[Rfam]
RNA sequence: AGGAAACUUAUAGCGCCUGAACAAAGUAUACGCAUGAUUUAUGAUACAUGUAUAAUCAGAUACAUGUUGAGAGAUUGUUGUUGUCUUUGUUGACGAGGAGGAUAGUUAUCGAAUUAUCGGCGGAUGCUAUCCCGGAUGUGGCCCAUUCGAAAGUUCAAUGUUUAAAGCAUAUAGGUAACUGUAUGUCCAAAGCCAUUGAAAUAGCCAAGA
Numbered sequence: 001a002g003g004a005a006a007c008u009u010a011u012a013g014c015g016c017c018u019g020a021a022c023a024a025a026g027u028a029u030a031c032g033c034a035u036g037a038u039u040u041a042u043g044a045u046a047c048a049u050g051u052a053u054a055a056u057c058a059g060a061u062a063c064a065u066g067u068u069g070a071g072a073g074a075u076u077g078u079u080g081u082u083g084u085c086u087u088u089g090u091u092g093a094c095g096a097g098g099a100g101g102a103u104a105g106u107u108a109u110c111g112a113a114u115u116a117u118c119g120g121c122g123g124a125u126g127c128u129a130u131c132c133c134g135g136a137u138g139u140g141g142c143c144c145a146u147u148c149g150a151a152a153g154u155u156c157a158a159u160g161u162u163u164a165a166a167g168c169a170u171a172u173a174g175g176u177a178a179c180u181g182u183a184u185g186u187c188c189a190a191a192g193c194c195a196u197u198g199a200a201a202u203a204g205c206c207a208a209g210a
Stems, first nucleotide, its partner, number of pairs: 020091007100132005109120004133149006154200007168185007